Record summary:
The family of this 93-nucleotide RNA sequence from Pseudomonas sp. GM25 is "ivy-DE RNA". Rfam's curators put it in the seed alignment. The family's RNA type in Rfam is cis-regulatory element. The source organism's lineage runs through Bacteria, Pseudomonadati, Pseudomonadales, Pseudomonadaceae and Pseudomonas.
[Rfam]
RNA sequence: UGACCAGGGGGCCGGGACGUUCUGACUGUUGCAGGGUCGGAGUGACCUACGGGUACAGGGAGUGCCUGCGAUGAGGGCCUGGUCAGGGUAAAA
Numbered sequence: 001u002g003a004c005c006a007g008g009g010g011g012c013c014g015g016g017a018c019g020u021u022c023u024g025a026c027u028g029u030u031g032c033a034g035g036g037u038c039g040g041a042g043u044g045a046c047c048u049a050c051g052g053g054u055a056c057a058g059g060g061a062g063u064g065c066c067u068g069c070g071a072u073g074a075g076g077g078c079c080u081g082g083u084c085a086g087g088g089u090a091a092a093a
Stems, first nucleotide, its partner, number of pairs: 001085005010079004014048003018044001020042008050068007